[Rfam]
RNA sequence: GAACGAGAUAGAGGUCGCAUUUUUCAUAAGUACGAUGACGGAUGUAUUCAAGAGCAGAAGAACUCAUCAGAAAGGGGAAGAUGCCGAAAGGAUAUGGAGACUUGAACCCUUUUCCUUGGGCAUGUCGUCAACAGCGCCAUGACUGUCAUCGCAAGAUGGAGAGCUAUCGAAGUA
Numbered sequence: 001g002a003a004c005g006a007g008a009u010a011g012a013g014g015u016c017g018c019a020u021u022u023u024u025c026a027u028a029a030g031u032a033c034g035a036u037g038a039c040g041g042a043u044g045u046a047u048u049c050a051a052g053a054g055c056a057g058a059a060g061a062a063c064u065c066a067u068c069a070g071a072a073a074g075g076g077g078a079a080g081a082u083g084c085c086g087a088a089a090g091g092a093u094a095u096g097g098a099g100a101c102u103u104g105a106a107c108c109c110u111u112u113u114c115c116u117u118g119g120g121c122a123u124g125u126c127g128u129c130a131a132c133a134g135c136g137c138c139a140u141g142a143c144u145g146u147c148a149u150c151g152c153a154a155g156a157u158g159g160a161g162a163g164c165u166a167u168c169g170a171a172g173u174a
Stems, first nucleotide, its partner, number of pairs: 007168005017084009034068005088117005094111001096109002118144002121141004126136003146159005
Lysine riboswitch aptamer: a 174-nucleotide RNA from Mediterraneibacter torques. The base pairs follow the family's consensus structure, which is taken from published work. It scores 98 bits against the family's covariance model. Its family is annotated with lysine biosynthetic process in the Gene Ontology. The organism belongs to Mediterraneibacter torques, within Bacteria.